mir-iab-4 microRNA precursor family: a 70-nucleotide RNA sequence from Tribolium castaneum.

RNA sequence: CUCCUGUUACGUAUACUGAAGGUAUACCGGACAGAAAACACUCAGGAUACAUUCAGUAUACGUACAGGGG
Numbered sequence: 001c002u003c004c005u006g007u008u009a010c011g012u013a014u015a016c017u018g019a020a021g022g023u024a025u026a027c028c029g030g031a032c033a034g035a036a037a038a039c040a041c042u043c044a045g046g047a048u049a050c051a052u053u054c055a056g057u058a059u060a061c062g063u064a065c066a067g068g069g070g
Base pairs, nucleotide, nucleotide: 002069003068004067005066006065009063010062011061012060013059014058015057016056017055018054019053020052022050023049024048025047027046028045030043031042034039

The source organism's lineage runs through Eukaryota, Opisthokonta, Pterygota, Eumetabola and Tribolium. The family's consensus secondary structure was predicted with RNAalifold. Gene Ontology terms of the family: miRNA-mediated post-transcriptional gene silencing and RISC complex.